[Rfam]
RNA sequence: UGGAGUCAGGCCAGCAAAAGCUGCCACCGGGAUACUGAGUAGACGGUGCUGCCUGCGUCUCAGUCCCAGGAGGACUGGGU
Numbered sequence: 001u002g003g004a005g006u007c008a009g010g011c012c013a014g015c016a017a018a019a020g021c022u023g024c025c026a027c028c029g030g031g032a033u034a035c036u037g038a039g040u041a042g043a044c045g046g047u048g049c050u051g052c053c054u055g056c057g058u059c060u061c062a063g064u065c066c067c068a069g070g071a072g073g074a075c076u077g078g079g080u
Stems, first nucleotide, its partner, number of pairs: 005059001007055005012023004027046003065079005